[Rfam]
RNA sequence: UCAAUCACAGGCAAUGAGGUCUGCCUCAAACCGCUUCUUAGCAAGCUGAUGACUUCUACUUAACC
Number, nucleotide and partner (000 for none) at each position: 001u000002c000003a000004a000005u000006c000007a000008c000009a000010g025011g024012c023013a022014a000015u000016g056017a055018g054019g053020u052021c051022u013023g012024c011025c010026u000027c000028a000029a000030a000031c000032c000033g046034c045035u044036u043037c000038u000039u000040a000041g000042c000043a036044a035045g034046c033047u000048g000049a000050u000051g021052a020053c019054u018055u017056c016057u000058a000059c000060u000061u000062a000063a000064c000065c000
This 65-nucleotide RNA sequence from Leeuwenhoekiella blandensis belongs to the Rfam family "Fluoride riboswitch aptamer (crcB RNA motif)". Rfam links the family to the GO terms response to fluoride and positive regulation of gene expression. The literature on the family includes a 2012 paper in Nature by Ren et al., "Fluoride ion encapsulation by Mg2+ ions and phosphates in a fluoride riboswitch". It is one of the family's seed sequences.